Rfam assigns this 46-nucleotide sequence from Bacillus manliponensis to the family "Ribosomal protein L19 leader". About the family: This family is a putative r-protein leader autoregulatory structure found in B. subtilis and other low-GC Gram-positive bacteria. It is located in the 5' untranslated regions of mRNAs encoding ribosomal protein L19 (rplS). The base pairs follow the family's consensus structure, which was predicted with CMfinder.
RNA sequence: ACGAUGUUCCGCUGCAAUGGACUGAAUAGCUUUGUAAGAGCAUCUG
Numbered sequence: 001a002c003g004a005u006g007u008u009c010c011g012c013u014g015c016a017a018u019g020g021a022c023u024g025a026a027u028a029g030c031u032u033u034g035u036a037a038g039a040g041c042a043u044c045u046g
Stems, first nucleotide, its partner, number of pairs: 003044007013036002016032002